[Rfam]
The family of this 62-nucleotide RNA sequence from Clarias magur is "Selenocysteine insertion sequence 1". From the family's description: The incorporation of selenocysteine into a protein sequence is directed by an in-frame UGA codon (usually a stop codon) within the coding region of the mRNA. Selenoprotein mRNAs contain a conserved secondary structure in the 3' UTR that is required for the distinction of UGA stop from UGA selenocysteine. The selenocysteine insertion sequence (SECIS) is around 60 nt in length and adopts a hairpin structure which is sufficiently well-defined and conserved to act as a computational screen for selenoprotein genes. It is annotated as a cis-regulatory element.
RNA sequence: GUGUUUUAAUGAUGGUCUGACUCGAAACUCCUUAGUGAAUGAUCAGACCUGAAGCCUAACAU
Dot-bracket structure: (((((........(((((((.(......((......))..).)))))))........)))))